The record is an 80-nucleotide sequence, which matches "Proteo-phage-1 RNA" in Rfam.
By type it is a small RNA.
RNA sequence: CCCUUGCCGGGGGGCCACAUGAGUGGAAGGCCGGACGCGGAUAAGCCAUGAGUGCCGCGCAUAGAAAAACCAUGGCAGCC
Numbered sequence: 001c002c003c004u005u006g007c008c009g010g011g012g013g014g015c016c017a018c019a020u021g022a023g024u025g026g027a028a029g030g031c032c033g034g035a036c037g038c039g040g041a042u043a044a045g046c047c048a049u050g051a052g053u054g055c056c057g058c059g060c061a062u063a064g065a066a067a068a069a070c071c072a073u074g075g076c077a078g079c080c
Base pairs, nucleotide, nucleotide: 001014002013003012004011007034008033009032010031016025017024018023036059037058038057039056040055045076046075047074048073049072